[Rfam]
RNA sequence: GUACCGGAUGGGAGUUAUACCGCAGUGGCCCAUAACUGUACAUUGAAGGGGAGCGGCGUCAAAUGUACAGACGGUGC
Number, nucleotide and partner (000 for none) at each position: 001g077002u076003a075004c074005c073006g072007g000008a000009u032010g031011g030012g029013a000014g000015u000016u000017a000018u000019a000020c000021c000022g000023c000024a000025g000026u000027g000028g000029c012030c011031c010032a009033u000034a000035a000036c000037u069038g068039u067040a066041c065042a064043u063044u062045g000046a000047a000048g000049g000050g000051g000052a000053g000054c000055g000056g000057c000058g000059u000060c000061a000062a044063a043064u042065g041066u040067a039068c038069a037070g000071a000072c006073g005074g004075u003076g002077c001
Background: Shown here is a 77-nucleotide sequence, a member of the family "CyVA-1 RNA". About the family: Cyanobacteria, Acidobacteria (1 example), Verrucomicrobia (1 example).